[Rfam]
RNA sequence: CUCUGGGCCGAUAGGACGCUCAGGGCGGAAAGAG
Number, nucleotide and partner (000 for none) at each position: 001c025002u024003c023004u022005g021006g020007g019008c018009c000010g000011a000012u000013a000014g000015g000016a000017c000018g008019c007020u006021c005022a004023g003024g002025g001026c000027g000028g000029a000030a000031a000032g000033a000034g000

A member of the RNA family "L31-Firmicutes ribosomal protein leader" from Paenibacillus terrae, 34 nucleotides long. Rfam classes the family as a cis-regulatory leader. NCBI's taxonomy places the organism under Bacteria, Bacillati, Bacilli, Caryophanales, Paenibacillus. It is one of the family's seed sequences. For this family Rfam cites "Discovery of 20 novel ribosomal leader candidates in bacteria and archaea" (Eckert and Weinberg, BMC Microbiol, 2020).